[Rfam]
RNA sequence: CCCAGACAUCAAGAGUCAGGCCUGUCGCCUGACACCAACCUGCUCCCGGCAAGGUGGUGCCUUCACAAACGUGAAGGGAUGUGGCCAGACCGGCAAAAACGGGCAUAGUC
Numbered sequence: 001c002c003c004a005g006a007c008a009u010c011a012a013g014a015g016u017c018a019g020g021c022c023u024g025u026c027g028c029c030u031g032a033c034a035c036c037a038a039c040c041u042g043c044u045c046c047c048g049g050c051a052a053g054g055u056g057g058u059g060c061c062u063u064c065a066c067a068a069a070c071g072u073g074a075a076g077g078g079a080u081g082u083g084g085c086c087a088g089a090c091c092g093g094c095a096a097a098a099a100c101g102g103g104c105a106u107a108g109u110c
Stems, first nucleotide, its partner, number of pairs: 006082005015033006034058003039054003042050003047102001084094003
Shown here is a 110-nucleotide RNA sequence from Acetobacter senegalensis, a member of the family "SAM-I/IV (S-adenosyl methionine) riboswitch aptamer". Clan: SAM clan.